[Rfam]
Nucleotides: 065
Base pairs, nucleotide, nucleotide: 001065002064003063004062005061014051015050017048018047019046020045021044022043023042029038031036
Number, partner (000 for none) and nucleotide at each position: 001065g002064u003063g004062u005061g006000c007000u008000u009000a010000u011000g012000a013000a014051g015050a016000u017048c018047g019046c020045u021044a022043a023042u024000a025000a026000a027000a028000g029038g030000g031036u032000g033000a034000u035000u036031a037000a038029c039000u040000c041000a042023g043022u044021u045020a046019g047018c048017g049000u050015u051014c052000a053000g054000a055000u056000g057000u058000c059000c060000u061005c062004a063003c064002a065001c

This 65-nucleotide RNA sequence from Lepidothrix coronata belongs to the Rfam family "Selenocysteine insertion sequence 1". Rfam links the family to the GO term selenocysteine incorporation. The family has 61 seed sequences and 3,793 matches in Rfam 15.1. The organism belongs to Lepidothrix, within Eukaryota. A search with the family's covariance model found it, with a score of 40 bits.